The record is a 147-nucleotide sequence, which matches "Alphaproteobacterial sRNA ar45" in Rfam. The literature on the family includes a 2012 paper in RNA Biol by del Val et al., "A survey of sRNA families in alpha-proteobacteria". By type it is a small RNA. The sequence is in the family's curated seed alignment.
RNA sequence: GCCCAAAGUCGCACGUGCCUGUGGGCGUCCGCCGGUCCCUCGAAUGGCGAGGACAUCGGUAAGGUAACCGGAGUUAACCCCUCCGGUCGGUUCGACGGCCAACCGCCGAUCCGAGGACGCCUUGAAGCAACGACGGUGCGGGCCUUU
Dot-bracket structure: ((((...((((....(((....(((((((((((((..(((((.....)))))...))))).......(((((.........)))))((((..((.(((....))).))..))))))))))))....))).)))).....))))....